About this RNA
Shown here is a 353-nucleotide RNA from Desulfuromonas acetoxidans, a member of the family "transfer-messenger RNA". On this family, see Williams and Bartel, RNA 1996: "Phylogenetic analysis of tmRNA secondary structure". About the family: Bacterial tmRNA, also known as 10Sa RNA or SsrA, is named for its dual tRNA and mRNA-like properties.

RNA sequence: GGGGGCGCCAAGGUUUCGACGGGGAUUGGAAGCUAAGGUUGCAUGUCGGAGUGGGCAGGCUCCGUUAAAAAGCCCAUCUUAUACAAACGCCGAUACUGACGUUUCGUACGCACUGGCAGCUUAAGUCUGCCACGUCUCUAGUCUCUUCGCCUGCGGGUUUCUAGCGACGUCAAUUUAGUAGGCUGGUUGUUGUUCAAGUCCGUGGUUCAACAGCGAGAUCUAAACGGAAUCGCCACAUGUAAGAGCCUGUCUGUGGGGGCUGCAUGCGGUUAAAUUUAAAACACAGACUACACAUGUAGACGCCUUAAGUGAAAGAUUUUCGGACGCGGGUUCGAUUCCCGCCGCCUCCACCA
Dot-bracket structure: (((((((............((((((((....(((.((((..(((((((((([[[[..[.)))))..........]..]]]]................................((((((.......))))))[[[[..[[[........(((((.(....]]]..]]]]......).)))))((.((((((.....[.[[[.......)))))).))........]]].].....[.[[[..[..[[.(((((((]]...]..]]].].............)))))))...))))).....))))..)))....))))))))...(((((.......))))))))))))....
Rfam classes the family as a non-coding RNA gene.